This 75-nucleotide RNA from Mycobacterium spongiae belongs to the Rfam family "ASpks TB sRNA".
Lineage of the source: Bacteria > Bacillati > Actinomycetes > Mycobacteriaceae > Mycobacterium.
Pairs were carried over by alignment from the consensus structure, which is taken from published work.
Rfam classes the family as an antisense RNA.
It scores 60 bits against the family's covariance model.
[Rfam]
RNA sequence: CUUCAGUGAGCCCAGCCAUAGCGGCGAAUCGCUGUUGUGGGCCUGGCCGUAGGUGGCCAGCACGGCUUGGGCUUC
Numbered sequence: 001c002u003u004c005a006g007u008g009a010g011c012c013c014a015g016c017c018a019u020a021g022c023g024g025c026g027a028a029u030c031g032c033u034g035u036u037g038u039g040g041g042c043c044u045g046g047c048c049g050u051a052g053g054u055g056g057c058c059a060g061c062a063c064g065g066c067u068u069g070g071g072c073u074u075c
Stems, first nucleotide, its partner, number of pairs: 015025003032070002038065001043060003047056003